[Rfam]
RNA sequence: GGCCGGGCGGCGCCUCCAGGACUGUCCAACCUGAGAGUGUGUCCCCGCGGUCAGUCUCAGGUUCGUCAGCCCGAGAGGUGCCGCCCCUUC
Numbered sequence: 001g002g003c004c005g006g007g008c009g010g011c012g013c014c015u016c017c018a019g020g021a022c023u024g025u026c027c028a029a030c031c032u033g034a035g036a037g038u039g040u041g042u043c044c045c046c047g048c049g050g051u052c053a054g055u056c057u058c059a060g061g062u063u064c065g066u067c068a069g070c071c072c073g074a075g076a077g078g079u080g081c082c083g084c085c086c087c088u089u090c
Base pairs, nucleotide, nucleotide: 005087006086007085008083009082010081011080012079013078014077015076016075019072020071022069023068024067026065028063029062030061031060032059033058034057035056036055038053039052